This 384-nucleotide sequence from Macrostomum lignano belongs to the Rfam family "Group I catalytic intron".
Gene Ontology term of the family: Group I intron splicing.

[Rfam]
RNA sequence: CAUUGAAAUUUCUUUAUGGUGAUCAAUACAAAAACAUUAUAACCAACAUUAAACAAGUGCUUAGUGAUUGGCGACACCUUCAAAUUGCGGGAACUCCGUCCGAUUCUAGUACGUCAAUAACAGCCUCAAGUACCACUUCAGUUGAGAAAUCUUCUGAAGGAACACAGGUAAUUCCUGUUCCCAAUCGGACUUCGUCCGCGAACCUAUGGUUCGAUGGUAACAAGCUUGAGGACAUGGUGGAAAUCCGCAGCCAAGCUCCUAAGUCCGAACGAAGUUGACAAGGAUAUGGAGAAGGUUCAGAGACUUAAUGGGGGUGGGGCUGAAGGAUCUGGUCAAUCCUGAUGAAGCCUUAAGAUAAAGUCCAGCCUCUUUCGAAAGAUUGAG
Numbered sequence: 001c002a003u004u005g006a007a008a009u010u011u012c013u014u015u016a017u018g019g020u021g022a023u024c025a026a027u028a029c030a031a032a033a034a035c036a037u038u039a040u041a042a043c044c045a046a047c048a049u050u051a052a053a054c055a056a057g058u059g060c061u062u063a064g065u066g067a068u069u070g071g072c073g074a075c076a077c078c079u080u081c082a083a084a085u086u087g088c089g090g091g092a093a094c095u096c097c098g099u100c101c102g103a104u105u106c107u108a109g110u111a112c113g114u115c116a117a118u119a120a121c122a123g124c125c126u127c128a129a130g131u132a133c134c135a136c137u138u139c140a141g142u143u144g145a146g147a148a149a150u151c152u153u154c155u156g157a158a159g160g161a162a163c164a165c166a167g168g169u170a171a172u173u174c175c176u177g178u179u180c181c182c183a184a185u186c187g188g189a190c191u192u193c194g195u196c197c198g199c200g201a202a203c204c205u206a207u208g209g210u211u212c213g214a215u216g217g218u219a220a221c222a223a224g225c226u227u228g229a230g231g232a233c234a235u236g237g238u239g240g241a242a243a244u245c246c247g248c249a250g251c252c253a254a255g256c257u258c259c260u261a262a263g264u265c266c267g268a269a270c271g272a273a274g275u276u277g278a279c280a281a282g283g284a285u286a287u288g289g290a291g292a293a294g295g296u297u298c299a300g301a302g303a304c305u306u307a308a309u310g311g312g313g314g315u316g317g318g319g320c321u322g323a324a325g326g327a328u329c330u331g332g333u334c335a336a337u338c339c340u341g342a343u344g345a346a347g348c349c350u351u352a353a354g355a356u357a358a359a360g361u362c363c364a365g366c367c368u369c370u371u372u373c374g375a376a377a378g379a380u381u382g383a384g
Stems, first nucleotide, its partner, number of pairs: 002023004075316005081310002086249006096240005250296002256291004264284003300363001302362005318349004369382001372379002